[Rfam]
RNA: Histone 3' UTR stem-loop
RNA sequence: ACAACGGCCCUUCUUAGGGCCACUCAAUACUUUCAAGAGAACUCUU
Dot-bracket structure: .....((((((....)))))).........................